[Rfam]
RNA sequence: UCUGACCACACACGGAGAUCGGCAGGAGCGGGGGACCCAAGAUAAGUGCCGGUCCGCGAACUGACUCUGAUGUGACGUCAGUGAAUCAGGAGCCGGCUCGGGGUGAAGCCACAUGAGUGGGUGUGGCCGGACUUCUUCGCCGUCCGAACCCGACAGCUCACCUCGCAGGCGGCUGACGAAGGUGCG
Numbered sequence: 001u002c003u004g005a006c007c008a009c010a011c012a013c014g015g016a017g018a019u020c021g022g023c024a025g026g027a028g029c030g031g032g033g034g035a036c037c038c039a040a041g042a043u044a045a046g047u048g049c050c051g052g053u054c055c056g057c058g059a060a061c062u063g064a065c066u067c068u069g070a071u072g073u074g075a076c077g078u079c080a081g082u083g084a085a086u087c088a089g090g091a092g093c094c095g096g097c098u099c100g101g102g103g104u105g106a107a108g109c110c111a112c113a114u115g116a117g118u119g120g121g122u123g124u125g126g127c128c129g130g131a132c133u134u135c136u137u138c139g140c141c142g143u144c145c146g147a148a149c150c151c152g153a154c155a156g157c158u159c160a161c162c163u164c165g166c167a168g169g170c171g172g173c174u175g176a177c178g179a180a181g182g183u184g185c186g
Base pairs, nucleotide, nucleotide: 001027002026003025028166029165030164031163032162033161038100101151102150103149109126110125111124112123129145130144131143132142

This 186-nucleotide RNA sequence from Streptomyces avermitilis belongs to the Rfam family "c-di-AMP riboswitch aptamer (ydaO/yuaA leader)". The source organism's lineage runs through Bacteria, Bacillati, Actinomycetes, Kitasatosporales and Streptomyces avermitilis. About the family: This family represents a conserved RNA structure found upstream of the ydaO and yuaA genes in Bacillus subtilis and related genes in other bacteria. The ydaO/yuaA element is thought to act as a genetic 'off' switch for the ydaO and yuaA genes in its native state. It is believed that the element may be triggered during osmotic shock leading to activation of ydaO, a predicted amino acid transporter gene, and members of the yuaA-yubG operon which code for KtrA and KtrB K+ transporters.